[Rfam]
Nucleotides: 111
Stems, first nucleotide, its partner, number of pairs: 003110002025091004
Number, partner (000 for none) and nucleotide at each position: 001000g002000g003110c004109g005000u006000c007000a008000a009000c010000g011000u012000g013000a014000u015000g016000a017000a018000c019000u020000a021000u022000u023000u024000a025091c026090g027089g028088a029000u030000g031000u032000a033000a034000a035000a036000c037000u038000g039000u040000c041000c042000u043000u044000c045000g046000c047000g048000a049000c050000u051000u052000g053000u054000c055000a056000u057000u058000u059000g060000u061000c062000c063000g064000a065000g066000a067000g068000c069000g070000c071000a072000a073000a074000a075000c076000c077000g078000u079000g080000u081000g082000g083000a084000u085000g086000u087000u088028u089027c090026c091025g092000u093000u094000g095000c096000c097000u098000u099000c100000c101000u102000a103000c104000u105000g106000a107000u108000c109004u110003g111000u

Small nucleolar RNA Z13/snr52: a 111-nucleotide RNA from Mycosarcoma maydis. It is one of the family's seed sequences. The family has 42 seed sequences and 1,203 matches in Rfam 15.1. Rfam classes the family as a C/D-box small nucleolar RNA.